[Rfam]
RNA sequence: AUCGUUCAUCUCCACCUGCCUUGAGGUAUGCUCGACUGAAAUCUAAGUGAGAUUUAAGUAGGAGACGGAAGUAGGGUUUAGCCCGAAGGAACGCGCU
Numbered sequence: 001a002u003c004g005u006u007c008a009u010c011u012c013c014a015c016c017u018g019c020c021u022u023g024a025g026g027u028a029u030g031c032u033c034g035a036c037u038g039a040a041a042u043c044u045a046a047g048u049g050a051g052a053u054u055u056a057a058g059u060a061g062g063a064g065a066c067g068g069a070a071g072u073a074g075g076g077u078u079u080a081g082c083c084c085g086a087a088g089g090a091a092c093g094c095g096c097u
Stems, first nucleotide, its partner, number of pairs: 003093005009065005068094001074084003
The record is a 97-nucleotide sequence from Trichocoleus sp. FACHB-262, which matches "Glutamine riboswitch aptamer (glnA leader)" in Rfam. A search with the family's covariance model found it, with a score of 54 bits. For this family Rfam cites "Structural and Dynamic Basis for Low-Affinity, High-Selectivity Binding of L-Glutamine by the Glutamine Riboswitch" (Ren et al., Cell Rep, 2015). Rfam links the family to the GO term glutamine binding.